RNA sequence: AAGCCAGUACAUUACAUCUGAUUUACCUGAAUGUGUUUUUCAGAAGUAAAAUAUUGGCAAUAGUACAGCCAUGGUACGAGCCUUAAAAACUGUGAGGUCUUUAAGGUCCCUGAGAAUGGCUACAGUA
Numbered sequence: 001a002a003g004c005c006a007g008u009a010c011a012u013u014a015c016a017u018c019u020g021a022u023u024u025a026c027c028u029g030a031a032u033g034u035g036u037u038u039u040u041c042a043g044a045a046g047u048a049a050a051a052u053a054u055u056g057g058c059a060a061u062a063g064u065a066c067a068g069c070c071a072u073g074g075u076a077c078g079a080g081c082c083u084u085a086a087a088a089a090c091u092g093u094g095a096g097g098u099c100u101u102u103a104a105g106g107u108c109c110c111u112g113a114g115a116a117u118g119g120c121u122a123c124a125g126u127a
Stems, first nucleotide, its partner, number of pairs: 003058005017044004068120004080107007089098002
RNA: Small nucleolar RNA SNORA33
Organism: Monodelphis domestica